Rfam assigns this 58-nucleotide RNA from Rhodococcus sp. AD45 to the family "msiK RNA". The family's consensus secondary structure is taken from published work.

RNA sequence: CACACUCACCCUCAACUUGGAUCGUCCGGCACGUUCCUGCCGGUAGAAGGGAUCAACC
Numbered sequence: 001c002a003c004a005c006u007c008a009c010c011c012u013c014a015a016c017u018u019g020g021a022u023c024g025u026c027c028g029g030c031a032c033g034u035u036c037c038u039g040c041c042g043g044u045a046g047a048a049g050g051g052a053u054c055a056a057c058c
Stems, first nucleotide, its partner, number of pairs: 009050002012047002015044001026043006